[Rfam]
RNA sequence: UGUAUUCCUUAUCUGUUAUCUAUUUUUUAAUGUUUAUGUGGAGCCUAUCUUCGCGCUACUUUCUACAAAAUAGCGAGAAGAUAGGCCCUGCUGUUGUUGCCGCUAGAACUCUCACA
Numbered sequence: 001u002g003u004a005u006u007c008c009u010u011a012u013c014u015g016u017u018a019u020c021u022a023u024u025u026u027u028u029a030a031u032g033u034u035u036a037u038g039u040g041g042a043g044c045c046u047a048u049c050u051u052c053g054c055g056c057u058a059c060u061u062u063c064u065a066c067a068a069a070a071u072a073g074c075g076a077g078a079a080g081a082u083a084g085g086c087c088c089u090g091c092u093g094u095u096g097u098u099g100c101c102g103c104u105a106g107a108a109c110u111c112u113c114a115c116a
Stems, first nucleotide, its partner, number of pairs: 002100003022092001025090001040089002043086007052077001054075003058071001060069003
This 116-nucleotide RNA from Providencia stuartii belongs to the Rfam family "tp2".
On this family, see Rivas et al., Curr Biol 2001: "Computational identification of noncoding RNAs in E. coli by comparative genomics".
The organism belongs to Providencia stuartii, within Bacteria.